[Rfam]
Shown here is a 204-nucleotide RNA sequence from Oryza sativa, a member of the family "MIR812 microRNA precursor family".
RNA sequence: AAAAAGACAAACCCUAGGUUUCAGUGUCCAACGUUUGACUGUCCGUCUUAUGAGAAAUUUUUUAUAAUUAGUAUUUUCAUUGUUGUUAGAUGAUAAAACAUGAUUAAUACUUUAUACGUGACUUGUCUUUUUAAUUUUUUCAUAUUUUUUUAAAUAAGACGGACGAUCAAAUGUUGGAUAUGUAAACCCAGGGUUUAUCUUUUU
Dot-bracket structure: ..........................((((((.(((((.((((((((((((......................................................................................................)))))))))))).))))).))))))..........................